[Rfam]
RNA sequence: CGUUCUUAGUGUUCACUGCGAUCCUUGAUUUAAAUUCUAAAACAAUUAAGGCACGCGGUGAAUGCCAAGGCUC
Numbered sequence: 001c002g003u004u005c006u007u008a009g010u011g012u013u014c015a016c017u018g019c020g021a022u023c024c025u026u027g028a029u030u031u032a033a034a035u036u037c038u039a040a041a042a043c044a045a046u047u048a049a050g051g052c053a054c055g056c057g058g059u060g061a062a063u064g065c066c067a068a069g070g071c072u073c
Stems, first nucleotide, its partner, number of pairs: 004070003009065008018056003023051008
A member of the RNA family "mir-124 microRNA precursor family" from Lytechinus variegatus, 73 nucleotides long. Pairs were carried over by alignment from the consensus structure, which was predicted with PFOLD.